Shown here is an 87-nucleotide RNA from Rhodamnia argentea, a member of the family "Small nucleolar RNA R11/Z151".
The base pairs follow the family's consensus structure, which was predicted with PFOLD.
A reference for the family is Barneche et al. (2001), "Identification of 66 box C/D snoRNAs in Arabidopsis thaliana: extensive gene duplications generated multiple isoforms predicting new ribosomal RNA 2'-O-methylation sites", J Mol Biol.

RNA sequence: GGGCUUGUGAUAAUAAAUCAAGAUUAUCUUAGCGGAUUUUAGUAAGGUUCGUCGUCAAUGAUUUGAUUGUUACACACAUUGAAGCCC
Numbered sequence: 001g002g003g004c005u006u007g008u009g010a011u012a013a014u015a016a017a018u019c020a021a022g023a024u025u026a027u028c029u030u031a032g033c034g035g036a037u038u039u040u041a042g043u044a045a046g047g048u049u050c051g052u053c054g055u056c057a058a059u060g061a062u063u064u065g066a067u068u069g070u071u072a073c074a075c076a077c078a079u080u081g082a083a084g085c086c087c
Stems, first nucleotide, its partner, number of pairs: 001087005